[Rfam]
RNA: RNA of unknown function 21
Organism: Saccharomyces mikatae
RNA sequence: AUUUUCCAUCUUCAAAAAGAAAAAAAAUAGAACCAUAUGGAUGAAAAAGUUCGGGGUUAGCCUUGGCUAUAGGUGGACCAAAACCGAUUAACCAUACAUUUGGCCACCAACCCCGGAUCACUGCAAACGAAAAAGUAUGGGGAUGCUCCCCGGCAUUGAAUAUGUAUCACUAUUAACGUCACCAGAUUGAAAUGUACCGGCUAGAUGAAGACUAUUUGAUCAGCUAGUUACUUCUAUCGAAUAAAGUGGCCAAAACCAACUCAUUAUAGGUCAUGAUAUAGUAAGCAGGAAGUAUUGGAAUAUGUGGAGAGAAAACUGUGAAAACUGCUUUUUCUGUUUAUAGUUGGUUUAUAGAGGAAGUAUUAGGAAACUGGGGCACAACAAUAAUACGUGUUCCACAACUUUCAGCGCGGGUGUGUCUUCUUUUCCUGCUUGAGAUAGCGCUAUGUCACUGUUCCUCAUUUGAAGAUUUGUUUUGAUCAAAAAUAUGUUCAACUCUUUUUCACCGGCUUUCUCUUUUUAUAUUUAAUACAUAUUUGUUCCAAUACUCGGUGCGUCUUCUUAGCCGCCGAAGUGAGAUUUCAGAAUCAUCAACGUGAAAGGGUAAAAACAGUUAGGAUAGUAUAUAUGUAUAUAUAAAUUUAAUUACAUACUUCAAUAAGGAAUGGUAUAGAUUUUUCGUGGAUAAUA
Numbered sequence: 001a002u003u004u005u006c007c008a009u010c011u012u013c014a015a016a017a018a019g020a021a022a023a024a025a026a027a028u029a030g031a032a033c034c035a036u037a038u039g040g041a042u043g044a045a046a047a048a049g050u051u052c053g054g055g056g057u058u059a060g061c062c063u064u065g066g067c068u069a070u071a072g073g074u075g076g077a078c079c080a081a082a083a084c085c086g087a088u089u090a091a092c093c094a095u096a097c098a099u100u101u102g103g104c105c106a107c108c109a110a111c112c113c114c115g116g117a118u119c120a121c122u123g124c125a126a127a128c129g130a131a132a133a134a135g136u137a138u139g140g141g142g143a144u145g146c147u148c149c150c151c152g153g154c155a156u157u158g159a160a161u162a163u164g165u166a167u168c169a170c171u172a173u174u175a176a177c178g179u180c181a182c183c184a185g186a187u188u189g190a191a192a193u194g195u196a197c198c199g200g201c202u203a204g205a206u207g208a209a210g211a212c213u214a215u216u217u218g219a220u221c222a223g224c225u226a227g228u229u230a231c232u233u234c235u236a237u238c239g240a241a242u243a244a245a246g247u248g249g250c251c252a253a254a255a256c257c258a259a260c261u262c263a264u265u266a267u268a269g270g271u272c273a274u275g276a277u278a279u280a281g282u283a284a285g286c287a288g289g290a291a292g293u294a295u296u297g298g299a300a301u302a303u304g305u306g307g308a309g310a311g312a313a314a315a316c317u318g319u320g321a322a323a324a325c326u327g328c329u330u331u332u333u334c335u336g337u338u339u340a341u342a343g344u345u346g347g348u349u350u351a352u353a354g355a356g357g358a359a360g361u362a363u364u365a366g367g368a369a370a371c372u373g374g375g376g377c378a379c380a381a382c383a384a385u386a387a388u389a390c391g392u393g394u395u396c397c398a399c400a401a402c403u404u405u406c407a408g409c410g411c412g413g414g415u416g417u418g419u420c421u422u423c424u425u426u427u428c429c430u431g432c433u434u435g436a437g438a439u440a441g442c443g444c445u446a447u448g449u450c451a452c453u454g455u456u457c458c459u460c461a462u463u464u465g466a467a468g469a470u471u472u473g474u475u476u477u478g479a480u481c482a483a484a485a486a487u488a489u490g491u492u493c494a495a496c497u498c499u500u501u502u503u504c505a506c507c508g509g510c511u512u513u514c515u516c517u518u519u520u521u522a523u524a525u526u527u528a529a530u531a532c533a534u535a536u537u538u539g540u541u542c543c544a545a546u547a548c549u550c551g552g553u554g555c556g557u558c559u560u561c562u563u564a565g566c567c568g569c570c571g572a573a574g575u576g577a578g579a580u581u582u583c584a585g586a587a588u589c590a591u592c593a594a595c596g597u598g599a600a601a602g603g604g605u606a607a608a609a610a611c612a613g614u615u616a617g618g619a620u621a622g623u624a625u626a627u628a629u630g631u632a633u634a635u636a637u638a639a640a641u642u643u644a645a646u647u648a649c650a651u652a653c654u655u656c657a658a659u660a661a662g663g664a665a666u667g668g669u670a671u672a673g674a675u676u677u678u679u680c681g682u683g684g685a686u687a688a689u690a
Stems, first nucleotide, its partner, number of pairs: 041682008053114005058069004073085001075084001164671006195571001198568007258265002305551003332359004337354002365459005612647004622637006